[Rfam]
RNA: Small nucleolar RNA snoR111
RNA sequence: GUGUUAAUGGUGAGACUGUUGAAAGUGUCUUACCGUUGUGAAUAUUGAGGCAUAUCGAAUCGGCGAGUCAUCGUUUCGGUCGUCCUUUGUUUGGUUGGCGAUACGAUUGUUACUCUUCUACAU
Numbered sequence: 001g002u003g004u005u006a007a008u009g010g011u012g013a014g015a016c017u018g019u020u021g022a023a024a025g026u027g028u029c030u031u032a033c034c035g036u037u038g039u040g041a042a043u044a045u046u047g048a049g050g051c052a053u054a055u056c057g058a059a060u061c062g063g064c065g066a067g068u069c070a071u072c073g074u075u076u077c078g079g080u081c082g083u084c085c086u087u088u089g090u091u092u093g094g095u096u097g098g099c100g101a102u103a104c105g106a107u108u109g110u111u112a113c114u115c116u117u118c119u120a121c122a123u
Base pairs, nucleotide, nucleotide: 006037007036008035009034010033011032012031013030014029015028016027062119063118065115066114067113070107071106072105073104079102080101081100082099083098084097087094088093